[Rfam]
RNA: Group II catalytic intron D1-D4-7
Organism: Grifola frondosa
Nucleotides: 155
Base pairs, nucleotide, nucleotide: 002021003020004019005018006017007016029071030070031069032068033067034062035061036060037059038058040056041055043054044053045052046051092106094104095103108132109131110130111129116123117122137155138154139153
Number, partner (000 for none) and nucleotide at each position: 001000u002021u003020a004019g005018c006017u007016c008000c009000g010000a011000u012000c013000a014000u015000a016007g017006a018005g019004c020003u021002a022000u023000c024000c025000c026000u027000a028000c029071c030070u031069u032068g033067a034062c035061a036060u037059g038058c039000g040056u041055g042000u043054g044053c045052g046051g047000g048000u049000g050000a051046c052045u053044g054043c055041c056040g057000g058038g059037u060036g061035u062034g063000a064000a065000g066000c067033u068032c069031a070030a071029g072000g073000g074000a075000c076000a077000a078000u079000g080000u081000a082000a083000c084000g085000a086000a087000a088000g089000u090000g091000c092106u093000a094104g095103g096000g097000a098000a099000a100000a101000u102000a103095u104094c105000g106092a107000a108132c109131g110130u111129g112000g113000u114000u115000a116123a117122c118000g119000a120000a121000a122117g123116u124000g125000a126000a127000c128000a129111u130110a131109c132108g133000u134000a135000c136000a137155a138154c139153u140000a141000g142000g143000c144000u145000c146000c147000g148000u149000a150000a151000a152000a153139g154138g155137u